[Rfam]
RNA: ASpks TB sRNA
Organism: Streptomyces sp. SID10815
RNA sequence: CUUCACCGAGCCGAGCCAGAGGGGUUGUUCGCGGUCCUGGCCGUAGGCGGCCAGCAACGCCUGCGCUUC
Numbered sequence: 001c002u003u004c005a006c007c008g009a010g011c012c013g014a015g016c017c018a019g020a021g022g023g024g025u026u027g028u029u030c031g032c033g034g035u036c037c038u039g040g041c042c043g044u045a046g047g048c049g050g051c052c053a054g055c056a057a058c059g060c061c062u063g064c065g066c067u068u069c
Stems, first nucleotide, its partner, number of pairs: 014026004032059002037054003041050003